Record summary
Rfam assigns this 148-nucleotide RNA sequence from Staphylococcus gallinarum to the family "Ribosomal protein L10 leader". Pairs were carried over by alignment from the consensus structure, which was predicted with CMfinder. This family is a putative r-protein leader autoregulatory structure found in B. subtilis and other low-GC Gram-positive bacteria. A search with the family's covariance model found it, with a score of 93 bits. By type it is a cis-regulatory leader.
RNA sequence: GAUGUAUGUAUUAUUUUACCUAAGACAGUAGGAGUUAUUACUAACUUAAAACUUAAUCCUACCGAGGCUAAAAUUGACUUGAACGUGAUUAUUUUAGAACUUUCAAGCACUUUUUGCCAUGGGUAGAAAGUGCUUUUUUUAUUGAGAA
Numbered sequence: 001g002a003u004g005u006a007u008g009u010a011u012u013a014u015u016u017u018a019c020c021u022a023a024g025a026c027a028g029u030a031g032g033a034g035u036u037a038u039u040a041c042u043a044a045c046u047u048a049a050a051a052c053u054u055a056a057u058c059c060u061a062c063c064g065a066g067g068c069u070a071a072a073a074u075u076g077a078c079u080u081g082a083a084c085g086u087g088a089u090u091a092u093u094u095u096a097g098a099a100c101u102u103u104c105a106a107g108c109a110c111u112u113u114u115u116g117c118c119a120u121g122g123g124u125a126g127a128a129a130g131u132g133c134u135u136u137u138u139u140u141a142u143u144g145a146g147a148a
Stems, first nucleotide, its partner, number of pairs: 028062006034045003107133010